[Rfam]
RNA sequence: GAAGACCCUGUUGAGCUUGACUCUAGUCUGGCAUUGUAAGGAGACAUGAGAGGUGUAGCAUAAGUGGGAGAUCGCUCGCGGUCGUCGCUGAAAAACCACUACUUUCAUUGUUUCAUUACUUACUCGGUUGGGCGGAGGCGGUGCGCGGUCGAUUAUAUCGGCGAGCGCACGGUGUUUCGUUCCAAGCGUGCAGAGUGGCGUCGGGCGGCGGCCGUUCGCCAAUUGUACGUACAACUCCCGCGUGAUCCGGUUCGAGGACACUGCCAGGCGGGGAGUUUGACUGGGGCGGUACAUCUGUCAAAGAAUAACGCAGGUGUCCUAAGGCCAGCUCAGCGAGGACAGAAACCUCGCGUAGAGCAAAAGGGCAAAAGCUGGCUUGAUCCAGAUGUUCAGUACGCAUAGGGACUGCGAAAGCACGGCCUAUCGAUCCUUUAGUAUAAAGAGUUUUUAGCAAGAGGUGCCAGAAAAGUUACCACAGGGAUAACUGGCUUGUGGCAGCCAAGCGUUCAUAGCGACGUUGCUUUUUGAUCCUUCGAUGU
Numbered sequence: 001g002a003a004g005a006c007c008c009u010g011u012u013g014a015g016c017u018u019g020a021c022u023c024u025a026g027u028c029u030g031g032c033a034u035u036g037u038a039a040g041g042a043g044a045c046a047u048g049a050g051a052g053g054u055g056u057a058g059c060a061u062a063a064g065u066g067g068g069a070g071a072u073c074g075c076u077c078g079c080g081g082u083c084g085u086c087g088c089u090g091a092a093a094a095a096c097c098a099c100u101a102c103u104u105u106c107a108u109u110g111u112u113u114c115a116u117u118a119c120u121u122a123c124u125c126g127g128u129u130g131g132g133c134g135g136a137g138g139c140g141g142u143g144c145g146c147g148g149u150c151g152a153u154u155a156u157a158u159c160g161g162c163g164a165g166c167g168c169a170c171g172g173u174g175u176u177u178c179g180u181u182c183c184a185a186g187c188g189u190g191c192a193g194a195g196u197g198g199c200g201u202c203g204g205g206c207g208g209c210g211g212c213c214g215u216u217c218g219c220c221a222a223u224u225g226u227a228c229g230u231a232c233a234a235c236u237c238c239c240g241c242g243u244g245a246u247c248c249g250g251u252u253c254g255a256g257g258a259c260a261c262u263g264c265c266a267g268g269c270g271g272g273g274a275g276u277u278u279g280a281c282u283g284g285g286g287c288g289g290u291a292c293a294u295c296u297g298u299c300a301a302a303g304a305a306u307a308a309c310g311c312a313g314g315u316g317u318c319c320u321a322a323g324g325c326c327a328g329c330u331c332a333g334c335g336a337g338g339a340c341a342g343a344a345a346c347c348u349c350g351c352g353u354a355g356a357g358c359a360a361a362a363g364g365g366c367a368a369a370a371g372c373u374g375g376c377u378u379g380a381u382c383c384a385g386a387u388g389u390u391c392a393g394u395a396c397g398c399a400u401a402g403g404g405a406c407u408g409c410g411a412a413a414g415c416a417c418g419g420c421c422u423a424u425c426g427a428u429c430c431u432u433u434a435g436u437a438u439a440a441a442g443a444g445u446u447u448u449u450a451g452c453a454a455g456a457g458g459u460g461c462c463a464g465a466a467a468a469g470u471u472a473c474c475a476c477a478g479g480g481a482u483a484a485c486u487g488g489c490u491u492g493u494g495g496c497a498g499c500c501a502a503g504c505g506u507u508c509a510u511a512g513c514g515a516c517g518u519u520g521c522u523u524u525u526u527g528a529u530c531c532u533u534c535g536a537u538g539u
Stems, first nucleotide, its partner, number of pairs: 007479004012475002014471005020276004027268007036119004041114005046108007063100005070083004123256005133249004141170005186243005279292001280290003293315006318419002324376006330356002333351006357366002381405003386400004407416003430457004435452001438450003488529001490527001492526001494522006503513002
RNA: Eukaryotic large subunit ribosomal RNA, nucleotides 2864 to 3402
Organism: Trichogramma brassicae